This 48-nucleotide RNA sequence from Nocardia araoensis belongs to the Rfam family "L31-Actinobacteria ribosomal protein leader". The family's consensus secondary structure is taken from published work. The organism belongs to Nocardia araoensis, within Bacteria. By type it is a cis-regulatory leader. On this family, see Eckert and Weinberg, BMC Microbiol 2020: "Discovery of 20 novel ribosomal leader candidates in bacteria and archaea".
RNA sequence: UCGGUUCCGGUUCACGCUUCGCGCGUUCGCGCGGGCGACCCGGCGACC
Number, nucleotide and partner (000 for none) at each position: 001u000002c000003g048004g047005u046006u000007c043008c042009g041010g040011u000012u000013c000014a000015c037016g036017c035018u034019u000020c033021g032022c031023g030024c000025g000026u000027u000028c000029g000030c023031g022032c021033g020034g018035g017036c016037g015038a000039c000040c010041c009042g008043g007044c000045g000046a005047c004048c003